[Rfam]
RNA sequence: UAAGCUCCUGUCCCAAGGGGGGAAAGCUGCCAUAUGCGGCAAGUACCUCUUCAAUUGGGCAGUGAGAACA
Numbered sequence: 001u002a003a004g005c006u007c008c009u010g011u012c013c014c015a016a017g018g019g020g021g022g023a024a025a026g027c028u029g030c031c032a033u034a035u036g037c038g039g040c041a042a043g044u045a046c047c048u049c050u051u052c053a054a055u056u057g058g059g060c061a062g063u064g065a066g067a068a069c070a
Stems, first nucleotide, its partner, number of pairs: 006065002009062001012059005017050005026040005
RNA: Hepatitis C virus stem-loop VII